Source information: Shown here is a 120-nucleotide RNA sequence from Rhizobium johnstonii, a member of the family "Rhizobiales sRNA Atu_C8". The family's consensus secondary structure was predicted with CMfinder. NCBI's taxonomy places the organism under Bacteria, Hyphomicrobiales, Rhizobiaceae, Rhizobium, Rhizobium johnstonii.
[Rfam]
RNA sequence: GAAAAUCGCAAUGGUUCUCGUAGUGGUGAUAUCGCGCAUGGGCAGGACGGUCUGAUCGUCCGGCAAUAGCCACCCAUGCGCCGAAAACAGGUCCCUGACGGGGCCUUUUUUUAUGCCCCG
Numbered sequence: 001g002a003a004a005a006u007c008g009c010a011a012u013g014g015u016u017c018u019c020g021u022a023g024u025g026g027u028g029a030u031a032u033c034g035c036g037c038a039u040g041g042g043c044a045g046g047a048c049g050g051u052c053u054g055a056u057c058g059u060c061c062g063g064c065a066a067u068a069g070c071c072a073c074c075c076a077u078g079c080g081c082c083g084a085a086a087a088c089a090g091g092u093c094c095c096u097g098a099c100g101g102g103g104c105c106u107u108u109u110u111u112u113a114u115g116c117c118c119c120g
Stems, first nucleotide, its partner, number of pairs: 007028001009026001032115001034081009045061006063070002087107001089106007